A member of the RNA family "Small nucleolar RNA SNORD11B" from Monodelphis domestica, 87 nucleotides long. By type it is a C/D-box small nucleolar RNA. On this family, see Yang et al., Nucleic Acids Res 2006: "snoSeeker: an advanced computational package for screening of guide and orphan snoRNA genes in the human genome".
RNA sequence: UGAUGGCAGUGAUGAUGAUUUUAUAUUGAUUCUCACCCGAUUUACAAAUAUGAGGGUAUAUAGUCACUACCUCAUCUGAUGCCAUCU
Numbered sequence: 001u002g003a004u005g006g007c008a009g010u011g012a013u014g015a016u017g018a019u020u021u022u023a024u025a026u027u028g029a030u031u032c033u034c035a036c037c038c039g040a041u042u043u044a045c046a047a048a049u050a051u052g053a054g055g056g057u058a059u060a061u062a063g064u065c066a067c068u069a070c071c072u073c074a075u076c077u078g079a080u081g082c083c084a085u086c087u
Stems, first nucleotide, its partner, number of pairs: 002086006
The sequence is in the family's curated seed alignment. The family has 37 seed sequences and 733 matches in Rfam 15.1. NCBI's taxonomy places the organism under Eukaryota, Deuterostomia, Teleostomi, Didelphinae, Monodelphis. The family's consensus secondary structure was predicted with WAR.